Rfam assigns this 105-nucleotide RNA sequence from Sphingomicrobium sediminis to the family "SAM-I/IV (S-adenosyl methionine) riboswitch aptamer". The source organism's lineage runs through Bacteria, Pseudomonadota, Alphaproteobacteria, Sphingomonadales and Sphingomicrobium. The family has 417 seed sequences and 567 matches in Rfam 15.1. Its Rfam clan is "SAM clan". Gene Ontology terms of the family: S-adenosylmethionine metabolic process and regulation of gene expression. It scores 51 bits against the family's covariance model.
[Rfam]
RNA sequence: GAUCAGCAUCAAGAGAGAACGUGCUUCUCACCAACCUGCUCGCUCGAAGUAAGGUGGUUUCCUUGUUGAAGGGAUGUGGCCGCGCGGCAAAAUGAACGAGUGACC
Numbered sequence: 001g002a003u004c005a006g007c008a009u010c011a012a013g014a015g016a017g018a019a020c021g022u023g024c025u026u027c028u029c030a031c032c033a034a035c036c037u038g039c040u041c042g043c044u045c046g047a048a049g050u051a052a053g054g055u056g057g058u059u060u061c062c063u064u065g066u067u068g069a070a071g072g073g074a075u076g077u078g079g080c081c082g083c084g085c086g087g088c089a090a091a092a093u094g095a096a097c098g099a100g101u102g103a104c105c
Base pairs, nucleotide, nucleotide: 006077007076008075009074010073015029016028017027018026019025030058031057032056035054036053037052038050039049040048042101043100044099045098046097079088080087081086